[Rfam]
RNA sequence: GAGUUGUGGCAUGCGGCGAGGUUAAGCCGAUAGGCGAAGCCGUAGGGAAACCGAGUCCUAACAAGGGCGCUAAAGUCGCAUGCUGCAGACGCGAAGCGGAACGAUCUAUCCAUGGCCAGGGUGAAGGACGGGUAACACCGUCUGGAGGCCCGAACCAGUCGGUGCUGCAACACCGUUGGAUGAGCUGUGGAUAGGGGUGAAAAGCCAAUCGCGUUCCGUGAUAGCUCGUU
Numbered sequence: 001g002a003g004u005u006g007u008g009g010c011a012u013g014c015g016g017c018g019a020g021g022u023u024a025a026g027c028c029g030a031u032a033g034g035c036g037a038a039g040c041c042g043u044a045g046g047g048a049a050a051c052c053g054a055g056u057c058c059u060a061a062c063a064a065g066g067g068c069g070c071u072a073a074a075g076u077c078g079c080a081u082g083c084u085g086c087a088g089a090c091g092c093g094a095a096g097c098g099g100a101a102c103g104a105u106c107u108a109u110c111c112a113u114g115g116c117c118a119g120g121g122u123g124a125a126g127g128a129c130g131g132g133u134a135a136c137a138c139c140g141u142c143u144g145g146a147g148g149c150c151c152g153a154a155c156c157a158g159u160c161g162g163u164g165c166u167g168c169a170a171c172a173c174c175g176u177u178g179g180a181u182g183a184g185c186u187g188u189g190g191a192u193a194g195g196g197g198u199g200a201a202a203a204g205c206c207a208a209u210c211g212c213g214u215u216c217c218g219u220g221a222u223a224g225c226u227c228g229u230u
Stems, first nucleotide, its partner, number of pairs: 005087013020041004026035003045052002055068004090228002093225001097218006106194011117182001119151004126143006155179003160175004196206003
RNA: Bacterial large subunit ribosomal RNA, nucleotides 655 to 884